[Rfam]
RNA sequence: UUUUCGAUGAGAUAUGUUUGGGUUACUUGGUGUGUUUGUGUUUCGUGCACACCUUCUAUGCGAACACCAGUAACCAAACAUAUUCCCAUUGAUUA
Dot-bracket structure: ....(((((.(((((((((((.((((..(((((..............................))))).)))))))))))))))..)))))....
This 95-nucleotide RNA sequence from Paragonimus skrjabini miyazakii belongs to the Rfam family "mir-190 microRNA precursor family". Its family is annotated with RISC complex and miRNA-mediated post-transcriptional gene silencing in the Gene Ontology. Pairs were carried over by alignment from the consensus structure, which was predicted with RNAalifold.